Guanidine-II riboswitch aptamer (mini-ykkC): a 49-nucleotide RNA sequence from Ixodes scapularis. A search with the family's covariance model found it, with a score of 34 bits. Its family is annotated with regulation of gene expression in the Gene Ontology. The organism belongs to Ixodes, within Eukaryota.
[Rfam]
RNA sequence: CCUAGAGGACGACCUCUAGGACUUUCGGGCGAUCUCAAGGACGACCUCA
Numbered sequence: 001c002c003u004a005g006a007g008g009a010c011g012a013c014c015u016c017u018a019g020g021a022c023u024u025u026c027g028g029g030c031g032a033u034c035u036c037a038a039g040g041a042c043g044a045c046c047u048c049a
Base pairs, nucleotide, nucleotide: 001020002019003018004017005016006015007014008013038047039046040045
Rfam's curators write: Simpler in structure and has fewer highly conserved nucleotide positions than the ykkC-yxkD leader.